[Rfam]
RNA sequence: AGGGACUCGAGACAGUAAAGACUAAGAAAGCUGACUCAAUAAUAAA
Numbered sequence: 001a002g003g004g005a006c007u008c009g010a011g012a013c014a015g016u017a018a019a020g021a022c023u024a025a026g027a028a029a030g031c032u033g034a035c036u037c038a039a040u041a042a043u044a045a046a
Stems, first nucleotide, its partner, number of pairs: 007039001009037003013033004
RNA: Plastid-rpl16 group II-D1 intron